RNA: Fluoride riboswitch aptamer (crcB RNA motif)
RNA sequence: AAUCAGAUAGGCGAUGGAGUUCGCCUUUAACCGCCGCUUGGCUAAUGACUCCUGCCGGUUA
Dot-bracket structure: .........[[[[..((((((]]]].......(((....)))....)))))).........